[Rfam]
Record summary
Shown here is an 87-nucleotide sequence from Ophiophagus hannah, a member of the family "Small nucleolar RNA SNORD70". The match comes from Rfam's covariance-model search (74 bits). Its family is annotated with nucleolus and RNA processing in the Gene Ontology. The family has 21 seed sequences and 1,085 matches in Rfam 15.1. For this family Rfam cites "RNomics: an experimental approach that identifies 201 candidates for novel, small, non-messenger RNAs in mouse" (Huttenhofer et al., EMBO J, 2001). By type it is a C/D-box small nucleolar RNA. Rfam's curators write: snoRNA HBII-234 belongs to the C/D family of snoRNAs. It is the human orthologue of the mouse MBII-234 and is predicted to guide 2'O-ribose methylation of the small 18S rRNA on position A512. It is hosted, together with HBII-95, by the core C/D box snoRNA protein encoding gene NOP5/NOP58. The pairing is the family consensus, mapped onto this sequence.

RNA sequence: AUUUCUGUUGUCAAUGAUGUCAAUUAGUGGACUGAAUCAAUGUGAUUGUAUAUAACAUUUCGUCACUACCACUGAGACAACAGAGAA
Numbered sequence: 001a002u003u004u005c006u007g008u009u010g011u012c013a014a015u016g017a018u019g020u021c022a023a024u025u026a027g028u029g030g031a032c033u034g035a036a037u038c039a040a041u042g043u044g045a046u047u048g049u050a051u052a053u054a055a056c057a058u059u060u061c062g063u064c065a066c067u068a069c070c071a072c073u074g075a076g077a078c079a080a081c082a083g084a085g086a087a
Base pairs, nucleotide, nucleotide: 002086003085004084005083006082007081008080009079010078011077012076